RNA sequence: AUAGCCGUCUUGGCGGCGGCCCCCUCCCGUGGUUCUGGCACCAAUUCCCCAAUGCCAGAGAUACGGGAGGGGACCACCGUCAAGGCUUCAUCAGGA
Numbered sequence: 001a002u003a004g005c006c007g008u009c010u011u012g013g014c015g016g017c018g019g020c021c022c023c024c025u026c027c028c029g030u031g032g033u034u035c036u037g038g039c040a041c042c043a044a045u046u047c048c049c050c051a052a053u054g055c056c057a058g059a060g061a062u063a064c065g066g067g068a069g070g071g072g073a074c075c076a077c078c079g080u081c082a083a084g085g086c087u088u089c090a091u092c093a094g095g096a
Stems, first nucleotide, its partner, number of pairs: 010083007018075002021072011033060008
Dot-bracket structure: .........(((((((.((.(((((((((((.((((((((............)))))))).))))))))))).)).))))))).............

mraW RNA: a 96-nucleotide sequence from Flaviflexus salsibiostraticola.
Taxonomically the source falls in Flaviflexus (Bacteria, Bacillati, Actinomycetes, Actinomycetales).
Rfam classes the family as a cis-regulatory element.
The family's consensus secondary structure is taken from published work.
Rfam 15.1 lists 851 matches to the family in 821 species.
The match comes from Rfam's covariance-model search (52 bits).